[Rfam]
RNA: PhotoRC-II RNA
Organism: Emcearvirus gerard
RNA sequence: CCUUUUCUAUGUGCACCCCGCAAACCGAGACCUAUAGGGUGGUUAAAUCACGUCUCUCAUACCUCUGCCUAAGGGUGGUAGAGGAAUAAUAUAUUCA
Numbered sequence: 001c002c003u004u005u006u007c008u009a010u011g012u013g014c015a016c017c018c019c020g021c022a023a024a025c026c027g028a029g030a031c032c033u034a035u036a037g038g039g040u041g042g043u044u045a046a047a048u049c050a051c052g053u054c055u056c057u058c059a060u061a062c063c064u065c066u067g068c069c070u071a072a073g074g075g076u077g078g079u080a081g082a083g084g085a086a087u088a089a090u091a092u093a094u095u096c097a
Stems, first nucleotide, its partner, number of pairs: 014041005020035001027056005062084007